[Rfam]
RNA: FMN riboswitch aptamer (RFN element)
Organism: Lachnoclostridium sp. An181
RNA sequence: AGGAUUCUUCGGGGUCGGGUGAAAGUCCCAACUGGCGGUACAGUCCGCGACCCGUCCGUUCUUUCGGGCGGCUGAUUUGGUGAUUUCCUUUGUGGGAAAGAUUCCAAAACCAACAGUAAAGUCUGGAUGAAAGAAGAAACGU
Dot-bracket structure: ..(.((((((......(((.......))).[[((((((....[[))))...((................))....(((((.......................)))))]])).(((....]]))).......)))))).)..
Numbered sequence: 001a002g003g004a005u006u007c008u009u010c011g012g013g014g015u016c017g018g019g020u021g022a023a024a025g026u027c028c029c030a031a032c033u034g035g036c037g038g039u040a041c042a043g044u045c046c047g048c049g050a051c052c053c054g055u056c057c058g059u060u061c062u063u064u065c066g067g068g069c070g071g072c073u074g075a076u077u078u079g080g081u082g083a084u085u086u087c088c089u090u091u092g093u094g095g096g097a098a099a100g101a102u103u104c105c106a107a108a109a110c111c112a113a114c115a116g117u118a119a120a121g122u123c124u125g126g127a128u129g130a131a132a133g134a135a136g137a138a139a140c141g142u
Stems, first nucleotide, its partner, number of pairs: 003140001005138006017029003031122002033112002035048004043110002052071002076108005114125003